[Rfam]
RNA sequence: UUGCAUGUGGACAUGUCUGCCCCUCCUUGCUUUGGGGUAGAAAUGCAUCCGUAACAUGCUACAUUAAUACAGGAGUUCUCAGGGCUGCCAACCUUACAGUAGAGGUUGAGUGGUAGUAUAUUUCUCCUACAUAA
Numbered sequence: 001u002u003g004c005a006u007g008u009g010g011a012c013a014u015g016u017c018u019g020c021c022c023c024u025c026c027u028u029g030c031u032u033u034g035g036g037g038u039a040g041a042a043a044u045g046c047a048u049c050c051g052u053a054a055c056a057u058g059c060u061a062c063a064u065u066a067a068u069a070c071a072g073g074a075g076u077u078c079u080c081a082g083g084g085c086u087g088c089c090a091a092c093c094u095u096a097c098a099g100u101a102g103a104g105g106u107u108g109a110g111u112g113g114u115a116g117u118a119u120a121u122u123u124c125u126c127c128u129a130c131a132u133a134a
Stems, first nucleotide, its partner, number of pairs: 003059006016041008072127004084114002088110001089108007